The record is a 77-nucleotide sequence from Crocodylus porosus, which matches "Mammalian CPEB3 ribozyme" in Rfam. The source organism's lineage runs through Eukaryota, Archelosauria, Archosauria, Longirostres and Crocodylus.
RNA sequence: GGUUGCACAUUUGAGGUCAUAGCAGAAGUGCUCACAAUGCGGCCCCAUCAGAUUCUAACAAAUCUGUGAAUUCUGCU
Numbered sequence: 001g002g003u004u005g006c007a008c009a010u011u012u013g014a015g016g017u018c019a020u021a022g023c024a025g026a027a028g029u030g031c032u033c034a035c036a037a038u039g040c041g042g043c044c045c046c047a048u049c050a051g052a053u054u055c056u057a058a059c060a061a062a063u064c065u066g067u068g069a070a071u072u073c074u075g076c077u
Stems, first nucleotide, its partner, number of pairs: 015044004021077007028040003049066006